[Rfam]
Notes:
Shown here is a 61-nucleotide sequence from Oceanisphaera avium, a member of the family "Pseudomonas sRNA P26". On this family, see Livny et al., Nucleic Acids Res 2006: "Identification of 17 Pseudomonas aeruginosa sRNAs and prediction of sRNA-encoding genes in 10 diverse pathogens using the bioinformatic tool sRNAPredict2". The family's RNA type in Rfam is non-coding RNA gene. From the family's description: This small RNA (sRNA) was computationally identified in the genome of the opportunistic pathogen Pseudomonas aeruginosa and its expression verified by northern blot analysis. P26 is conserved across many Gammaproteobacteria species and appears to be consistently located between the DNA directed RNA polymerase (beta subunit) and 50S ribosomal protein L7/L12 genes. The organism belongs to Oceanisphaera, within Bacteria.

RNA sequence: AAUUUUAGCUUAGCGGCCUAAGCAAUUAGGCUAGGGCUGGUGAAUAUAUAUUCACCAGCCC
Numbered sequence: 001a002a003u004u005u006u007a008g009c010u011u012a013g014c015g016g017c018c019u020a021a022g023c024a025a026u027u028a029g030g031c032u033a034g035g036g037c038u039g040g041u042g043a044a045u046a047u048a049u050a051u052u053c054a055c056c057a058g059c060c061c
Stems, first nucleotide, its partner, number of pairs: 015032004035060010